mir-205 microRNA precursor family: a 73-nucleotide sequence from Neogale vison. For this family Rfam cites "Vertebrate microRNA genes" (Lim et al., Science, 2003). The match comes from Rfam's covariance-model search (85 bits). Pairs were carried over by alignment from the consensus structure, which was predicted with RNAalifold. NCBI's taxonomy places the organism under Eukaryota, Bilateria, Dipnotetrapodomorpha, Musteloidea, Neogale.
[Rfam]
RNA sequence: UUCUCUUGUCCUUCAUUCCACCGGAGUCUGUCUUGUAGCCACCAGAUUUCAGUGGAGUGAAGUUCAGGAGGCG
Numbered sequence: 001u002u003c004u005c006u007u008g009u010c011c012u013u014c015a016u017u018c019c020a021c022c023g024g025a026g027u028c029u030g031u032c033u034u035g036u037a038g039c040c041a042c043c044a045g046a047u048u049u050c051a052g053u054g055g056a057g058u059g060a061a062g063u064u065c066a067g068g069a070g071g072c073g
Base pairs, nucleotide, nucleotide: 011062012061013060014059015058016057019054020053021052023050024049025048026047028045029044030043